[Rfam]
RNA sequence: UGAGUCGGCCCACGGGAGCCGCGGCGCAGCGAACCGGCCGGUUUCACCGGUCAGGCGCACACGUCGAGGAAAGUCCGGACUCCGCAGAGCACGGUGGUUGCUAACGGCAACCCGGGGUGACCCGAGGGCACAGUGCAACAGAGAGCAGACCGCCGCGUCGGUUCGCCGGCGCGGUAAGGGUGAAAGGGUGCGGUAAGAGCGCACCGGCGGGUCAGGUGACUGGCCCGGCCAGGUAAACCCCACCGGGAGCAAGGCACCGAGGUCCCACCUUCGGGUGGGCCGGGAGCGGACGUUCGAGGGCUGCUCGCCCGAGUCCGCAGGUAGCUGCUUGAGGCGGCCGGCGACGGUCGACCCAGAUGGAUGGUUCCCGCGGCCCCCGCCGUCAGGCGGGGGACGACAGAAUCCGGCUUACCGGCCGGCUCAUUCG
Number, nucleotide and partner (000 for none) at each position: 001u423002g422003a421004g420005u419006c418007g417008g416009c415010c414011c000012a000013c000014g369015g368016g367017a366018g365019c364020c363021g000022c066023g065024g064025c063026g062027c000028a000029g000030c000031g000032a000033a000034c000035c000036g000037g000038c000039c000040g000041g000042u000043u000044u000045c000046a000047c000048c000049g000050g000051u000052c000053a000054g000055g000056c000057g000058c000059a000060c000061a000062c026063g025064u024065c023066g022067a000068g000069g000070a000071a410072a409073g408074u000075c407076c406077g405078g404079a403080c249081u248082c247083c246084g000085c000086a000087g306088a305089g304090c303091a000092c245093g244094g243095u242096g241097g111098u110099u109100g108101c107102u000103a000104a000105c000106g000107g101108c100109a099110a098111c097112c126113c124114g123115g122116g121117g000118u000119g000120a000121c116122c115123c114124g113125a000126g112127g240128g239129c000130a000131c000132a000133g238134u237135g234136c233137a000138a000139c000140a000141g000142a000143g000144a000145g000146c000147a000148g000149a000150c179151c178152g175153c174154c173155g172156c171157g170158u169159c168160g167161g000162u000163u000164c000165g000166c000167c160168g159169g158170c157171g156172c155173g154174g153175u152176a000177a000178g151179g150180g000181u000182g000183a000184a000185a000186g000187g205188g204189u203190g202191c201192g200193g000194u000195a000196a000197g000198a000199g000200c192201g191202c190203a189204c188205c187206g000207g229208c227209g226210g225211g224212u223213c222214a221215g220216g000217u000218g000219a000220c215221u214222g213223g212224c211225c210226c209227g208228g000229c207230c000231a000232g000233g136234u135235a000236a000237a134238c133239c128240c127241c096242a095243c094244c093245g092246g083247g082248a081249g080250c000251a000252a000253g326254g325255c324256a000257c000258c000259g000260a000261g000262g000263u000264c000265c000266c000267a000268c000269c000270u000271u000272c000273g000274g000275g000276u000277g000278g000279g000280c000281c000282g000283g000284g000285a000286g318287c317288g316289g315290a314291c313292g000293u000294u000295c000296g000297a000298g310299g309300g308301c307302u000303g090304c089305u088306c087307g301308c300309c299310c298311g000312a000313g291314u290315c289316c288317g287318c286319a000320g000321g000322u000323a000324g255325c254326u253327g000328c000329u000330u000331g000332a000333g352334g000335c350336g349337g348338c347339c346340g345341g000342c000343g000344a000345c340346g339347g338348u337349c336350g335351a000352c333353c000354c000355a000356g000357a000358u000359g000360g000361a000362u000363g020364g019365u018366u017367c016368c015369c014370g000371c000372g000373g000374c000375c000376c000377c000378c000379g000380c000381c000382g000383u000384c000385a000386g000387g000388c000389g000390g000391g000392g000393g000394a000395c000396g000397a000398c000399a000400g000401a000402a000403u079404c078405c077406g076407g075408c073409u072410u071411a000412c000413c000414g010415g009416c008417c007418g006419g005420c004421u003422c002423a001424u000425u000426c000427g000

Description: The family of this 427-nucleotide RNA from Corynebacterium frankenforstense is "Bacterial RNase P class A". A search with the family's covariance model found it, with a score of 235 bits. Taxonomically the source falls in Corynebacterium frankenforstense (Bacteria, Actinomycetota, Mycobacteriales, Corynebacterium).